Description:
Rfam assigns this 117-nucleotide RNA from Litoreibacter arenae to the family "ALIL pseudoknot". The match comes from Rfam's covariance-model search (108 bits). By type it is a cis-regulatory element.
[Rfam]
RNA sequence: CGCGUAUUUUGCUCAGGCGGAGCUCGACCGCCGGUCCAGGACAUGAUCGCUUUCAUUGAGGAACACCGCAACGCCAUCGGGGUCGAGCCGAUCUGCAAACACCUGCCGAUUGCCCCA
Numbered sequence: 001c002g003c004g005u006a007u008u009u010u011g012c013u014c015a016g017g018c019g020g021a022g023c024u025c026g027a028c029c030g031c032c033g034g035u036c037c038a039g040g041a042c043a044u045g046a047u048c049g050c051u052u053u054c055a056u057u058g059a060g061g062a063a064c065a066c067c068g069c070a071a072c073g074c075c076a077u078c079g080g081g082g083u084c085g086a087g088c089c090g091a092u093c094u095g096c097a098a099a100c101a102c103c104u105g106c107c108g109a110u111u112g113c114c115c116c117a
Stems, first nucleotide, its partner, number of pairs: 016032005079116004089112002092109002095106003